[Rfam]
RNA sequence: UUCUUAUCAAGAGAGAUGGAGGGACAGGCCCGGUGAAAUCUCGGCAACAGCUUUUUAAAAAGUAAUGUGCCAAAUCCUGCAAGUAGUUUCACUUGGAAGAUAAGAG
Numbered sequence: 001u002u003c004u005u006a007u008c009a010a011g012a013g014a015g016a017u018g019g020a021g022g023g024a025c026a027g028g029c030c031c032g033g034u035g036a037a038a039u040c041u042c043g044g045c046a047a048c049a050g051c052u053u054u055u056u057a058a059a060a061a062g063u064a065a066u067g068u069g070c071c072a073a074a075u076c077c078u079g080c081a082a083g084u085a086g087u088u089u090c091a092c093u094u095g096g097a098a099g100a101u102a103a104g105a106g
Base pairs, nucleotide, nucleotide: 001106002105003104004103005102006101007100008099013042014041015040016039017038021031022030023029025079026078027077028076043071044070045069046068048067049066050063051062052061053060075098080095081094082093083092084091
RNA: SAM riboswitch aptamer (S box leader)
Organism: Candidatus Kurthia intestinigallinarum